MIR162_1 microRNA precursor family: a 108-nucleotide RNA from Chenopodium quinoa. Rfam links the family to the GO terms RISC complex and miRNA-mediated post-transcriptional gene silencing. The family has 36 seed sequences and 270 matches in Rfam 15.1. On this family, see Reinhart et al., Genes Dev 2002: "MicroRNAs in plants". The organism belongs to Chenopodium, within Eukaryota.

RNA sequence: GUUAAGGGCACUGGAGGCAGCGGUUCAUCGAUCUGUUCCUGAACUGGGUAUUCUUGUACAUUCAUUGCAGCAAUCGAUCGAUAAACCUCUGCAUCCAGCGCUUUAUAA
Dot-bracket structure: ............(((..(((.((((.(((((((..((..................................))..))))))).)))).)))..)))............
Numbered sequence: 001g002u003u004a005a006g007g008g009c010a011c012u013g014g015a016g017g018c019a020g021c022g023g024u025u026c027a028u029c030g031a032u033c034u035g036u037u038c039c040u041g042a043a044c045u046g047g048g049u050a051u052u053c054u055u056g057u058a059c060a061u062u063c064a065u066u067g068c069a070g071c072a073a074u075c076g077a078u079c080g081a082u083a084a085a086c087c088u089c090u091g092c093a094u095c096c097a098g099c100g101c102u103u104u105a106u107a108a
Stems, first nucleotide, its partner, number of pairs: 013096003018091003022087004027082007036073002